[Rfam]
RNA sequence: CGUCAAAAUCCGUGCCGGAAUUGCGCGUUCGUCCUCGAUCGCGUAUACUUUUUGCGUUGACGUAACACAGUGUGUUCUGCGGCGACCAACCGCAAAACCUGAUAAAAACCUCGCUCCGGCGGGGUUUUUU
Numbered sequence: 001c002g003u004c005a006a007a008a009u010c011c012g013u014g015c016c017g018g019a020a021u022u023g024c025g026c027g028u029u030c031g032u033c034c035u036c037g038a039u040c041g042c043g044u045a046u047a048c049u050u051u052u053u054g055c056g057u058u059g060a061c062g063u064a065a066c067a068c069a070g071u072g073u074g075u076u077c078u079g080c081g082g083c084g085a086c087c088a089a090c091c092g093c094a095a096a097a098c099c100u101g102a103u104a105a106a107a108a109c110c111u112c113g114c115u116c117c118g119g120c121g122g123g124g125u126u127u128u129u130u
Base pairs, nucleotide, nucleotide: 002061003060004059005058006057011056012055017051018050019049022045023044024043025042026041027040029038030037031036070100075096076095078094079093080092081091082090104129105128106127107126108125109124110123111122112121113120114119

The family of this 130-nucleotide RNA sequence from Oryza sativa is "istR Hfq binding RNA". On this family, see Vogel et al., Curr Biol 2004: "The small RNA IstR inhibits synthesis of an SOS-induced toxic peptide". Its family is annotated with mRNA binding and negative regulation of translation in the Gene Ontology. The base pairs follow the family's consensus structure, which was predicted with CMfinder.